[Rfam]
RNA: small Cajal body-specific RNA 18
Organism: Rattus norvegicus
RNA sequence: CUGCCGAUGAUGACAUGACCACUGCGCAAUCUGAGUUCUGGGAACCAGGUGAUGGAUUGUGCUGCGAACACUGAGGCCA
Numbered sequence: 001c002u003g004c005c006g007a008u009g010a011u012g013a014c015a016u017g018a019c020c021a022c023u024g025c026g027c028a029a030u031c032u033g034a035g036u037u038c039u040g041g042g043a044a045c046c047a048g049g050u051g052a053u054g055g056a057u058u059g060u061g062c063u064g065c066g067a068a069c070a071c072u073g074a075g076g077c078c079a
Base pairs, nucleotide, nucleotide: 003077004076005075038048039047040046041045